[Rfam]
RNA sequence: CGGCCAGCGAAAACACAGGCGCCGUGCUUGCAACGAUCACCUCGCCUGCACCUGUGCUGCCCCAGA
Numbered sequence: 001c002g003g004c005c006a007g008c009g010a011a012a013a014c015a016c017a018g019g020c021g022c023c024g025u026g027c028u029u030g031c032a033a034c035g036a037u038c039a040c041c042u043c044g045c046c047u048g049c050a051c052c053u054g055u056g057c058u059g060c061c062c063c064a065g066a
Stems, first nucleotide, its partner, number of pairs: 002062002005059005016048006025039002
RNA: Trypanosomatid snoRNA TB6Cs1H1
Organism: Trypanosoma cruzi